The family of this 119-nucleotide RNA sequence from Eubacterium sp. CAG:251 is "FMN riboswitch aptamer (RFN element)". About the family: The RFN element is a highly conserved domain that is found frequently in the 5'-untranslated regions of prokaryotic mRNAs that encode for flavin mononucleotide (FMN) biosynthesis and transport proteins.
[Rfam]
RNA sequence: AAAAUAUUUCAGGGCGAGGUGCAAUUCCUCACCGGCAGUAAAGUCUGCGAACCGCCAAGGCGGCCGAAACGGUGCAAUUCCGUUACCGACGGUUAAAGUCCGGAUGAGAGAAAUGUUUA
Numbered sequence: 001a002a003a004a005u006a007u008u009u010c011a012g013g014g015c016g017a018g019g020u021g022c023a024a025u026u027c028c029u030c031a032c033c034g035g036c037a038g039u040a041a042a043g044u045c046u047g048c049g050a051a052c053c054g055c056c057a058a059g060g061c062g063g064c065c066g067a068a069a070c071g072g073u074g075c076a077a078u079u080c081c082g083u084u085a086c087c088g089a090c091g092g093u094u095a096a097a098g099u100c101c102g103g104a105u106g107a108g109a110g111a112a113a114u115g116u117u118u119a
Base pairs, nucleotide, nucleotide: 003117004116005115006114007113008112009111010110017029018028019027031099032098033088034087035048036047037046038045043086044085052063053062068084069083070082071081072080090102091101092100
It scores 109 bits against the family's covariance model. Pairs were carried over by alignment from the consensus structure, which is taken from published work.